[Rfam]
RNA sequence: UGAGUAAGUUGGACGGACGCGGGCUGAAGGCGAAAGCAUCAGUCUGAGGAAAGUCCGGGCUCCAUAGGGCAGGAUGCCGGCUAACGGCCGGUGAAGGCGACUUUAAGGAUAGUGCCACAGAAACAAACCGCCGGCAUUUUGCCGGUAAGGGUGGAACGGUGCGGUAAGAGCGCACCGGCGGGCGGGAGACCGUCCGGCCAGGUAAACCCCAUCCGGAGCAAGACCGCAGGGCUUUUGCCCGAGAAAGGCAUGAGGAGCUGCCCGUUCCGCCUUUCGUAAAGGUCGCUGGAGGCCGCUGGCAACAGCGGUCCAAGAUAGAUGUCCGUCUUAAAUGACAGAACCCGGCUUACAGACUUGCUUGGCAC
Numbered sequence: 001u002g003a004g005u006a007a008g009u010u011g012g013a014c015g016g017a018c019g020c021g022g023g024c025u026g027a028a029g030g031c032g033a034a035a036g037c038a039u040c041a042g043u044c045u046g047a048g049g050a051a052a053g054u055c056c057g058g059g060c061u062c063c064a065u066a067g068g069g070c071a072g073g074a075u076g077c078c079g080g081c082u083a084a085c086g087g088c089c090g091g092u093g094a095a096g097g098c099g100a101c102u103u104u105a106a107g108g109a110u111a112g113u114g115c116c117a118c119a120g121a122a123a124c125a126a127a128c129c130g131c132c133g134g135c136a137u138u139u140u141g142c143c144g145g146u147a148a149g150g151g152u153g154g155a156a157c158g159g160u161g162c163g164g165u166a167a168g169a170g171c172g173c174a175c176c177g178g179c180g181g182g183c184g185g186g187a188g189a190c191c192g193u194c195c196g197g198c199c200a201g202g203u204a205a206a207c208c209c210c211a212u213c214c215g216g217a218g219c220a221a222g223a224c225c226g227c228a229g230g231g232c233u234u235u236u237g238c239c240c241g242a243g244a245a246a247g248g249c250a251u252g253a254g255g256a257g258c259u260g261c262c263c264g265u266u267c268c269g270c271c272u273u274u275c276g277u278a279a280a281g282g283u284c285g286c287u288g289g290a291g292g293c294c295g296c297u298g299g300c301a302a303c304a305g306c307g308g309u310c311c312a313a314g315a316u317a318g319a320u321g322u323c324c325g326u327c328u329u330a331a332a333u334g335a336c337a338g339a340a341c342c343c344g345g346c347u348u349a350c351a352g353a354c355u356u357g358c359u360u361g362g363c364a365c
Stems, first nucleotide, its partner, number of pairs: 001361010011350001012327007020046008051348003055345005060218004067263004072214005077091005092106001093104004107209002112207002114203003128150002130146007158176006178198001179196007222284004243275006254268005291310008
RNA: Bacterial RNase P class A